[Rfam]
RNA sequence: CUUACGAACCUUGGCACUGGAAGAAUUCACAGAUUGUAUUUGAAUCGUGAUUCUUUUAAUGCCAUAUUUCGUGGG
Numbered sequence: 001c002u003u004a005c006g007a008a009c010c011u012u013g014g015c016a017c018u019g020g021a022a023g024a025a026u027u028c029a030c031a032g033a034u035u036g037u038a039u040u041u042g043a044a045u046c047g048u049g050a051u052u053c054u055u056u057u058a059a060u061g062c063c064a065u066a067u068u069u070c071g072u073g074g075g
Stems, first nucleotide, its partner, number of pairs: 001075008012064005018058003021054001023053003027050004032045001

Shown here is a 75-nucleotide RNA sequence from Tribolium castaneum, a member of the family "mir-263 microRNA precursor family". The base pairs follow the family's consensus structure, which was predicted with RNAalifold. The family has 52 seed sequences and 368 matches in Rfam 15.1. Rfam's curators put it in the seed alignment. Gene Ontology terms of the family: miRNA-mediated post-transcriptional gene silencing and RISC complex. Taxonomically the source falls in Tribolium (Eukaryota, Opisthokonta, Coleoptera, Tenebrionidae).